RNA sequence: CGGUGAGGACGACCUCACCCCUGACCGGGGCAAGCAGUUUACGGGACGACCCGA
Numbered sequence: 001c002g003g004u005g006a007g008g009a010c011g012a013c014c015u016c017a018c019c020c021c022u023g024a025c026c027g028g029g030g031c032a033a034g035c036a037g038u039u040u041a042c043g044g045g046a047c048g049a050c051c052c053g054a
Stems, first nucleotide, its partner, number of pairs: 002019007042053004